[Rfam]
RNA sequence: ACGCUUGGCCCAUGUUCCGCUGACUUCGGUCAGCAGCAUGCCCGGGCAGUCUCGAUCUUCAAGACUGCGACGCGGUUCCGACCGCGUUGAUCAACCAGUUCGCUCCGGCAUCCCUGCGCGAACGGCCAUCGGUUCUCCCGAUGGUGAUGC
Number, nucleotide and partner (000 for none) at each position: 001a000002c000003g000004c000005u000006u000007g000008g000009c000010c000011c040012a039013u038014g037015u000016u035017c000018c000019g034020c033021u032022g031023a030024c029025u000026u000027c000028g000029g024030u023031c022032a021033g020034c019035a016036g000037c014038a013039u012040g011041c000042c000043c000044g000045g000046g068047c067048a066049g065050u064051c063052u000053c000054g092055a091056u090057c089058u000059u000060c000061a000062a000063g051064a050065c049066u048067g047068c046069g088070a087071c086072g085073c084074g083075g082076u000077u000078c000079c000080g000081a000082c075083c074084g073085c072086g071087u070088u069089g057090a056091u055092c054093a000094a000095c000096c000097a000098g000099u000100u000101c000102g000103c000104u000105c000106c000107g000108g000109c000110a000111u000112c000113c000114c000115u000116g000117c000118g150119c149120g148121a000122a000123c000124g000125g145126c144127c143128a142129u141130c140131g139132g138133u000134u000135c000136u000137c000138c132139c131140g130141a129142u128143g127144g126145u125146g000147a000148u120149g119150c118
radC RNA: a 150-nucleotide sequence. The base pairs follow the family's consensus structure, which is taken from published work. By type it is a cis-regulatory element.